[Rfam]
RNA: Small nucleolar RNA U49
Organism: Quercus lobata
RNA sequence: CCCCGAUGAGGAAGAAUUCCCAUAAAAUUGAUAGGAAGUGCCGUAUGACACGUCCAAAUGCAGAGCAGGUUA
Numbered sequence: 001c002c003c004c005g006a007u008g009a010g011g012a013a014g015a016a017u018u019c020c021c022a023u024a025a026a027a028u029u030g031a032u033a034g035g036a037a038g039u040g041c042c043g044u045a046u047g048a049c050a051c052g053u054c055c056a057a058a059u060g061c062a063g064a065g066c067a068g069g070u071u072a
Base pairs, nucleotide, nucleotide: 014066035054036053038051039050040049